[Rfam]
RNA sequence: GGGUCAAGUGAUGAGUAACAUAACUGCAACAAUAUGAUGGGAGUAAUAAUACUCCUAUGAUUCUUAAGUAUUUAAGUCUCUGAUGAUC
Numbered sequence: 001g002g003g004u005c006a007a008g009u010g011a012u013g014a015g016u017a018a019c020a021u022a023a024c025u026g027c028a029a030c031a032a033u034a035u036g037a038u039g040g041g042a043g044u045a046a047u048a049a050u051a052c053u054c055c056u057a058u059g060a061u062u063c064u065u066a067a068g069u070a071u072u073u074a075a076g077u078c079u080c081u082g083a084u085g086a087u088c
Stems, first nucleotide, its partner, number of pairs: 001088002004086003039056007